[Rfam]
The record is a 115-nucleotide sequence from Demequina activiva, which matches "SAM (S-adenosyl methionine) riboswitch aptamer" in Rfam.
The family's consensus secondary structure is taken from published work.

Nucleotides: 115
Stems, first nucleotide, its partner, number of pairs: 001079004009040001014036003022031001041065003046061003051055001082104009
Number, partner (000 for none) and nucleotide at each position: 001079g002078a003077u004076c005000a006000a007000g008000a009040a010000g011000u012000g013000c014036g015035g016034c017000c018000a019000c020000a021000a022031g023000c024000c025000c026000u027000c028000c029000a030000g031022c032000c033000g034016g035015c036014c037000c038000a039000c040009u041065g042064g043063c044000a045000a046061c047060c048059g049000c050000g051055u052000c053000c054000c055051g056000a057000c058000a059048c060047g061046g062000u063043g064042c065041c066000c067000c068000u069000g070000g071000a072000g073000g074000a075000a076004g077003a078002u079001c080000c081000g082104c083103c084102c085101u086100g087099c088098g089097u090096g091000a092000c093000a094000u095000c096090c097089a098088c099087g100086c101085a102084g103083g104082g105000a106000a107000g108000a109000a110000c111000g112000g113000a114000u115000a